A member of the RNA family "Glycine riboswitch aptamer" from Pararhodobacter oceanensis, 102 nucleotides long.
It scores 58 bits against the family's covariance model.
Lineage of the source: Bacteria > Pseudomonadota > Alphaproteobacteria > Rhodobacterales > Pararhodobacter.
For this family Rfam cites "A glycine-dependent riboswitch that uses cooperative binding to control gene expression" (Mandal et al., Science, 2004).

RNA sequence: GCGUUGAACAUGGGAGAAUCUGCGCCAGCCCAAAGCCACGCGCAGUGCCGAAGGAGCAACCGCCCCGGUAAACUCUCAGGCACCAAGGACCGUGUUCGAGCA
Number, nucleotide and partner (000 for none) at each position: 001g000002c000003g000004u000005u000006g097007a096008a095009c094010a093011u092012g091013g090014g000015a000016g000017a000018a000019u000020c045021u044022g043023c042024g041025c040026c000027a000028g000029c000030c000031c000032a000033a000034a000035g000036c000037c000038a000039c000040g025041c024042g023043c022044a021045g020046u000047g081048c080049c079050g077051a076052a000053g000054g075055a074056g073057c000058a000059a000060c068061c067062g000063c000064c000065c000066c000067g061068g060069u000070a000071a000072a000073c056074u055075c054076u051077c050078a000079g049080g048081c047082a000083c000084c000085a000086a000087g000088g000089a000090c013091c012092g011093u010094g009095u008096u007097c006098g000099a000100g000101c000102a000